[Rfam]
RNA: TPP riboswitch aptamer (THI element)
Organism: Romboutsia maritimum
RNA sequence: ACAAAUAAAUAGGGGAGCUAAUUUGCUGAGAGGAGAUACUUAAUCUCGACCCUUUAACCUGUCUGGAUAAUGCCAACGUAGGGAACUAAUUAUAAAAGGAG
Numbered sequence: 001a002c003a004a005a006u007a008a009a010u011a012g013g014g015g016a017g018c019u020a021a022u023u024u025g026c027u028g029a030g031a032g033g034a035g036a037u038a039c040u041u042a043a044u045c046u047c048g049a050c051c052c053u054u055u056a057a058c059c060u061g062u063c064u065g066g067a068u069a070a071u072g073c074c075a076a077c078g079u080a081g082g083g084a085a086c087u088a089a090u091u092a093u094a095a096a097a098g099g100a101g
Stems, first nucleotide, its partner, number of pairs: 006089001008087001010085001011053004017026002033047005058082004064075003